[Rfam]
RNA sequence: ACCGCCAGAAUCUUGGCGAUGUAUGGGAUCAGCGGCAGGUUCAGGAUCAGCAGAAUCAGGUUGCCCAGAUACAUCGAAAUGAUGACUGCCCAAAAGAUCUGCGGAUCGUCCACCAUCAGCCGUGGCCC
Numbered sequence: 001a002c003c004g005c006c007a008g009a010a011u012c013u014u015g016g017c018g019a020u021g022u023a024u025g026g027g028a029u030c031a032g033c034g035g036c037a038g039g040u041u042c043a044g045g046a047u048c049a050g051c052a053g054a055a056u057c058a059g060g061u062u063g064c065c066c067a068g069a070u071a072c073a074u075c076g077a078a079a080u081g082a083u084g085a086c087u088g089c090c091c092a093a094a095a096g097a098u099c100u101g102c103g104g105a106u107c108g109u110c111c112a113c114c115a116u117c118a119g120c121c122g123u124g125g126c127c128c
Base pairs, nucleotide, nucleotide: 003018004017005016006015007014008013026128027127029125030124031123033122034121035120036119038114039113040112043109045107046106047105048104050102051101052100053099054098056097057096061093062092063091066088067087068086072084073083074082075081
RNA: Ruegeria cis8 sRNA
Organism: Ruegeria pomeroyi